This 141-nucleotide RNA sequence from Peribacillus cavernae belongs to the Rfam family "Ribosomal protein L20 leader".

RNA sequence: UAGGAAAAGAAGAAGCACCCGCUUCUCACCUGAUUGACGCUAUAUAAGCAGUUAGCAGGUUCAUGAUUUGAUUAUUUGGAAUUUAUUCUGUUUAGUCUAUCUGUGUGGGUGCGUUACUAGCAUCCACACUUUUUUAUUGUU
Numbered sequence: 001u002a003g004g005a006a007a008a009g010a011a012g013a014a015g016c017a018c019c020c021g022c023u024u025c026u027c028a029c030c031u032g033a034u035u036g037a038c039g040c041u042a043u044a045u046a047a048g049c050a051g052u053u054a055g056c057a058g059g060u061u062c063a064u065g066a067u068u069u070g071a072u073u074a075u076u077u078g079g080a081a082u083u084u085a086u087u088c089u090g091u092u093u094a095g096u097c098u099a100u101c102u103g104u105g106u107g108g109g110u111g112c113g114u115u116a117c118u119a120g121c122a123u124c125c126a127c128a129c130u131u132u133u134u135u136a137u138u139g140u141u
Stems, first nucleotide, its partner, number of pairs: 011026006028060003036053003039049002104128009
The literature on the family includes a 1994 paper in Prog Nucleic Acid Res Mol Biol by Zengel and Lindahl, "Diverse mechanisms for regulating ribosomal protein synthesis in Escherichia coli".
Taxonomically the source falls in Peribacillus (Bacteria, Bacillati, Bacillota, Caryophanales).
This family is a putative r-protein leader autoregulatory structure found in B. subtilis and other low-GC Gram-positive bacteria.
The match comes from Rfam's covariance-model search (86 bits).